[Rfam]
RNA sequence: AGAAGAUCAGCUCUGUACAAUUACAUCCGAUGAAACAUUGUACAGAGU
Numbered sequence: 001a002g003a004a005g006a007u008c009a010g011c012u013c014u015g016u017a018c019a020a021u022u023a024c025a026u027c028c029g030a031u032g033a034a035a036c037a038u039u040g041u042a043c044a045g046a047g048u
Base pairs, nucleotide, nucleotide: 011047012046013045014044015043017041018040019039